This 86-nucleotide RNA from Rugosimonospora africana belongs to the Rfam family "ZMP/ZTP riboswitch aptamer (pfl RNA motif)". Lineage of the source: Bacteria > Bacillati > Actinomycetota > Micromonosporaceae > Rugosimonospora.
RNA sequence: GUGCGUCGCCGCGACUGGCGCGUUGAGGUGGAAUCGACCACCGGGGAGCGACGCAGACCACGGCACCGCGCGCCUGGGUGCCGGGG
Numbered sequence: 001g002u003g004c005g006u007c008g009c010c011g012c013g014a015c016u017g018g019c020g021c022g023u024u025g026a027g028g029u030g031g032a033a034u035c036g037a038c039c040a041c042c043g044g045g046g047a048g049c050g051a052c053g054c055a056g057a058c059c060a061c062g063g064c065a066c067c068g069c070g071c072g073c074c075u076g077g078g079u080g081c082c083g084g085g086g
Base pairs, nucleotide, nucleotide: 004056007053008052010050011049012048015045016044017074018073019072020071021070028041029040030039031038063081064080065079066078067077